[Rfam]
RNA sequence: GAUCGCGGUGAUGACUCGGAAAAUUCAAGCUCAACAGACCAAAAUGCAGGCAUCUCUCUUUAGAGAUUUGUUGCGUGUCGAUAAUCUCGCUAAACUGAGCGAUU
Number, nucleotide and partner (000 for none) at each position: 001g104002a103003u102004c101005g100006c099007g000008g000009u000010g000011a000012u000013g000014a000015c000016u000017c000018g000019g000020a000021a000022a000023a000024u000025u000026c000027a000028a000029g000030c000031u000032c000033a000034a000035c000036a000037g000038a000039c000040c000041a000042a000043a000044a000045u000046g000047c000048a000049g000050g000051c000052a000053u000054c000055u000056c000057u000058c000059u000060u000061u000062a000063g000064a000065g000066a000067u000068u000069u000070g000071u000072u000073g000074c000075g000076u000077g000078u000079c000080g000081a000082u000083a000084a000085u000086c000087u000088c000089g000090c000091u000092a000093a000094a000095c000096u000097g000098a000099g006100c005101g004102a003103u002104u001
Rfam assigns this 104-nucleotide RNA from Cynara cardunculus to the family "Small nucleolar RNA Z107/R87". Rfam 15.1 lists 783 matches to the family in 221 species. The match comes from Rfam's covariance-model search (89 bits). Lineage of the source: Eukaryota > Pentapetalae > asterids > Cynara > Cynara cardunculus subsp. cardunculus. It is annotated as a C/D-box small nucleolar RNA. Gene Ontology terms of the family: RNA processing and nucleolus.